The record is an 80-nucleotide RNA from Lytechinus variegatus, which matches "mir-219 microRNA precursor family" in Rfam. It is one of the family's seed sequences. The family's consensus secondary structure was predicted with RNAalifold.
[Rfam]
RNA sequence: UUAUCCGUUGAUUGUCCGAACGCAAUUCUUGUUGACUUUUCAUUCACAAUCAAGAACUGUGUACGGACAUCAGUGGUUGA
Numbered sequence: 001u002u003a004u005c006c007g008u009u010g011a012u013u014g015u016c017c018g019a020a021c022g023c024a025a026u027u028c029u030u031g032u033u034g035a036c037u038u039u040u041c042a043u044u045c046a047c048a049a050u051c052a053a054g055a056a057c058u059g060u061g062u063a064c065g066g067a068c069a070u071c072a073g074u075g076g077u078u079g080a
Stems, first nucleotide, its partner, number of pairs: 002079002005076003009072004014068005021061004026056006